[Rfam]
RNA sequence: CCCGCUAUGCGACUAGCGGUAGCCUAGGGGGACAUGCGUCACUGGUAACGGUGGGGUGUGAAGCUUCCCUGACAAUGUAGCCCCCGUAAGGGUGCCAAUGGAUCGUGAGAUCCGUAGGCAGCAAACCGAAGCAGCAUCGGUUGAGGAGC
Numbered sequence: 001c002c003c004g005c006u007a008u009g010c011g012a013c014u015a016g017c018g019g020u021a022g023c024c025u026a027g028g029g030g031g032a033c034a035u036g037c038g039u040c041a042c043u044g045g046u047a048a049c050g051g052u053g054g055g056g057u058g059u060g061a062a063g064c065u066u067c068c069c070u071g072a073c074a075a076u077g078u079a080g081c082c083c084c085c086g087u088a089a090g091g092g093u094g095c096c097a098a099u100g101g102a103u104c105g106u107g108a109g110a111u112c113c114g115u116a117g118g119c120a121g122c123a124a125a126c127c128g129a130a131g132c133a134g135c136a137u138c139g140g141u142u143g144a145g146g147a148g149c
Base pairs, nucleotide, nucleotide: 002019003018004017005016006015007014028069029068030067031066032065033060034059035058036057037056039054040053041052042051043050044049083092084091085090093120094119095118096117103110104109124142125141126140127139128138129137
RNA: Group II catalytic intron D1-D4-7